[Rfam]
RNA sequence: UCCCAGGGCAUCUGUUGUGACUGACACAGUUAGGACGGGUUUUUCUGUUCUUACUUGCGGAAUCGAUAUCAAGAGAUUUCAGAUGUGCAAUUUUUAUAAACAGGUUCAAGAAUUUCCCCUCGGGAUCAAUAA
Dot-bracket structure: .......((((((((((....)))))((((.(((((((......))))))).)).)).((((((..........)))))).)))))..................((.(...(..((((...)))))...)))
Numbered sequence: 001u002c003c004c005a006g007g008g009c010a011u012c013u014g015u016u017g018u019g020a021c022u023g024a025c026a027c028a029g030u031u032a033g034g035a036c037g038g039g040u041u042u043u044u045c046u047g048u049u050c051u052u053a054c055u056u057g058c059g060g061a062a063u064c065g066a067u068a069u070c071a072a073g074a075g076a077u078u079u080c081a082g083a084u085g086u087g088c089a090a091u092u093u094u095u096a097u098a099a100a101c102a103g104g105u106u107c108a109a110g111a112a113u114u115u116c117c118c119c120u121c122g123g124g125a126u127c128a129a130u131a132a
Stems, first nucleotide, its partner, number of pairs: 008086005013026005027057002029054002032051007059080006105132002108130001112126001115125004